[Rfam]
This 59-nucleotide sequence from Firmicutes bacterium CAG:791 belongs to the Rfam family "pemK RNA". The family's consensus secondary structure is taken from published work.
RNA sequence: AUAUUUAUUUCUUCUCUACGGAGCUGGCAGAGUACCCGGCAGAGGUUAGAAUCCUAUGA
Numbered sequence: 001a002u003a004u005u006u007a008u009u010u011c012u013u014c015u016c017u018a019c020g021g022a023g024c025u026g027g028c029a030g031a032g033u034a035c036c037c038g039g040c041a042g043a044g045g046u047u048a049g050a051a052u053c054c055u056a057u058g059a
Base pairs, nucleotide, nucleotide: 006056011023012022013021014020024042025041026040028038030036043055044054045053